A member of the RNA family "MIR480 microRNA precursor family" from Salix brachista, 115 nucleotides long. A reference for the family is Lu et al. (2005), "Novel and mechanical stress-responsive MicroRNAs in Populus trichocarpa that are absent from Arabidopsis", Plant Cell. Lineage of the source: Eukaryota > Streptophytina > eudicotyledons > Malpighiales > Salix. The family has 69 seed sequences and 3,070 matches in Rfam 15.1. The match comes from Rfam's covariance-model search (36 bits).
[Rfam]
RNA sequence: UAGCGUGUUUGAGGGGUAUUUUUAUGUAAUUAUGAAAGACUAUGCUUGAUUGUUUAGAAUCAUUUGAUAUCAUACAUCAUUAUAGACUUAUUAUAUGCUGGUCAUGCCUUAAGUG
Numbered sequence: 001u002a003g004c005g006u007g008u009u010u011g012a013g014g015g016g017u018a019u020u021u022u023u024a025u026g027u028a029a030u031u032a033u034g035a036a037a038g039a040c041u042a043u044g045c046u047u048g049a050u051u052g053u054u055u056a057g058a059a060u061c062a063u064u065u066g067a068u069a070u071c072a073u074a075c076a077u078c079a080u081u082a083u084a085g086a087c088u089u090a091u092u093a094u095a096u097g098c099u100g101g102u103c104a105u106g107c108c109u110u111a112a113g114u115g
Stems, first nucleotide, its partner, number of pairs: 006115002008112002014103002018099001023095003027090003031086001